[Rfam]
RNA sequence: CAUGGAAAAAGGCAAAGCUAGUGAAAGCUAGUGACGCAAAACUACAGGGACUACCGCCUACUCAAGUGAAAAAGCAGGCCAGUCAGCCAGUUACCCCA
Numbered sequence: 001c002a003u004g005g006a007a008a009a010a011g012g013c014a015a016a017g018c019u020a021g022u023g024a025a026a027g028c029u030a031g032u033g034a035c036g037c038a039a040a041a042c043u044a045c046a047g048g049g050a051c052u053a054c055c056g057c058c059u060a061c062u063c064a065a066g067u068g069a070a071a072a073a074g075c076a077g078g079c080c081a082g083u084c085a086g087c088c089a090g091u092u093a094c095c096c097c098a
Base pairs, nucleotide, nucleotide: 012037013036017032018031019030020029021028022027040092041091042090043089047088048087049084050083051082056079057078058077059076
The family of this 98-nucleotide RNA sequence from Bacillus sp. THAF10 is "c-di-GMP-I riboswitch aptamer". The match comes from Rfam's covariance-model search (61 bits). The organism belongs to Bacillus, within Bacteria.